[Rfam]
RNA sequence: CGCUUUUUUCGCCCGGGAACUCGACCCCCGACCGCCCAGAUAGUCGCCUUCAUCGAGGCCCAUCGCGACCGGUUCGGCAUCGAGCCGAUCUGUGAGGUCUUGCAGGUGGCGCCG
Numbered sequence: 001c002g003c004u005u006u007u008u009u010c011g012c013c014c015g016g017g018a019a020c021u022c023g024a025c026c027c028c029c030g031a032c033c034g035c036c037c038a039g040a041u042a043g044u045c046g047c048c049u050u051c052a053u054c055g056a057g058g059c060c061c062a063u064c065g066c067g068a069c070c071g072g073u074u075c076g077g078c079a080u081c082g083a084g085c086c087g088a089u090c091u092g093u094g095a096g097g098u099c100u101u102g103c104a105g106g107u108g109g110c111g112c113c114g
Stems, first nucleotide, its partner, number of pairs: 016026002075114004086109001089106007
RNA: ALIL pseudoknot